[Rfam]
RNA sequence: UUUACGGAUGCGUUCUGGGUUUUACAGAAUGCAUCUGUACCGGCUUUUUAAGGAACCAAUUAAGCCCGUACGGAUUUCCCACGUACGGGCUUUUCCUUUCGC
Numbered sequence: 001u002u003u004a005c006g007g008a009u010g011c012g013u014u015c016u017g018g019g020u021u022u023u024a025c026a027g028a029a030u031g032c033a034u035c036u037g038u039a040c041c042g043g044c045u046u047u048u049u050a051a052g053g054a055a056c057c058a059a060u061u062a063a064g065c066c067c068g069u070a071c072g073g074a075u076u077u078c079c080c081a082c083g084u085a086c087g088g089g090c091u092u093u094u095c096c097u098u099u100c101g102c
Stems, first nucleotide, its partner, number of pairs: 003039009013029004063091010
Background: The family of this 102-nucleotide RNA sequence from Limosilactobacillus panis is "trpB ncRNA motif". Gene Ontology term of the family: regulation of gene expression. Rfam describes the family as follows. trpB ncRNA motif was reported as a strong cis regulatory motif candidate, with potential to be a cis regulatory riboswitch type, it have been identified in Firmicutes and Fusobacteria. The motif have been recognised upstream of an uncharacterized ABC transporter with strong homology to amino acid transporters.